[Rfam]
RNA: Small nucleolar RNA SNORA77
Organism: Cyclopterus lumpus
RNA sequence: GCAGACAAACUCUGUUCUUUGCUGUUCACUCCAGCCUGGAACUUUUUAUGUCUGCUACAUAAACAUGCAGAAUGUAAUACUUCACUCGCUUUUAAAAGGCUGGUGUCAUUAUGUUCAGCUACAUUACA
Numbered sequence: 001g002c003a004g005a006c007a008a009a010c011u012c013u014g015u016u017c018u019u020u021g022c023u024g025u026u027c028a029c030u031c032c033a034g035c036c037u038g039g040a041a042c043u044u045u046u047u048a049u050g051u052c053u054g055c056u057a058c059a060u061a062a063a064c065a066u067g068c069a070g071a072a073u074g075u076a077a078u079a080c081u082u083c084a085c086u087c088g089c090u091u092u093u094a095a096a097a098g099g100c101u102g103g104u105g106u107c108a109u110u111a112u113g114u115u116c117a118g119c120u121a122c123a124u125u126a127c128a
Stems, first nucleotide, its partner, number of pairs: 001055006014042005022034003067119002070116002072112002074109002077106003082102001085099002